[Rfam]
A member of the RNA family "Group I catalytic intron" from Cerasibacillus quisquiliarum, 354 nucleotides long. On this family, see Cech, Annu Rev Biochem 1990: "Self-splicing of group I introns". The base pairs follow the family's consensus structure, which is taken from published work. Rfam links the family to the GO term Group I intron splicing. Group I catalytic introns are large self-splicing ribozymes. They catalyse their own excision from mRNA, tRNA and rRNA precursors in a wide range of organisms. The match comes from Rfam's covariance-model search (82 bits).
RNA sequence: CGAAGCUGCUUAAAGCAGAGUGAGGUAUAGUCGUCCUAACUGGUAACGGUUAGUGAUGAUCAUCGGGUGAAUUGCUGGAAACCCCUUAGAGCUUGUCUUACCACAACGGAGUCGGAAACGACAAACGUGACGGUUUGAAAAAAGACGAGAUUGGGCGAUCAGCAGCCAAGCGCCUGGGGCGAAAGCCUGGCGAAGGUUCAACGACUAGGAUAGACCAUCUAAAAGCAAAGCUUAUGAUGAUGAAAUCCAUAGGUGAACAAGGAAGCCGCUAAUUUCCUUGGAAUCCGAAGUGCCCGACCCCUACUAGAAAUCUAGAGGGUGAAGAUAUAGUCUAGUCAUUUAUGAAAGUAAAUG
Numbered sequence: 001c002g003a004a005g006c007u008g009c010u011u012a013a014a015g016c017a018g019a020g021u022g023a024g025g026u027a028u029a030g031u032c033g034u035c036c037u038a039a040c041u042g043g044u045a046a047c048g049g050u051u052a053g054u055g056a057u058g059a060u061c062a063u064c065g066g067g068u069g070a071a072u073u074g075c076u077g078g079a080a081a082c083c084c085c086u087u088a089g090a091g092c093u094u095g096u097c098u099u100a101c102c103a104c105a106a107c108g109g110a111g112u113c114g115g116a117a118a119c120g121a122c123a124a125a126c127g128u129g130a131c132g133g134u135u136u137g138a139a140a141a142a143a144g145a146c147g148a149g150a151u152u153g154g155g156c157g158a159u160c161a162g163c164a165g166c167c168a169a170g171c172g173c174c175u176g177g178g179g180c181g182a183a184a185g186c187c188u189g190g191c192g193a194a195g196g197u198u199c200a201a202c203g204a205c206u207a208g209g210a211u212a213g214a215c216c217a218u219c220u221a222a223a224a225g226c227a228a229a230g231c232u233u234a235u236g237a238u239g240a241u242g243a244a245a246u247c248c249a250u251a252g253g254u255g256a257a258c259a260a261g262g263a264a265g266c267c268g269c270u271a272a273u274u275u276c277c278u279u280g281g282a283a284u285c286c287g288a289a290g291u292g293c294c295c296g297a298c299c300c301c302u303a304c305u306a307g308a309a310a311u312c313u314a315g316a317g318g319g320u321g322a323a324g325a326u327a328u329a330g331u332c333u334a335g336u337c338a339u340u341u342a343u344g345a346a347a348g349u350a351a352a353u354g
Base pairs, nucleotide, nucleotide: 002037005034006033008031009030010029040049041048042047063297064296065295066294068292069291073164074163075162076161077160078159083155084154085153165197166196201333203332204331205330206329207328300319301318302317304315305314306313307312339352340351341350342349343348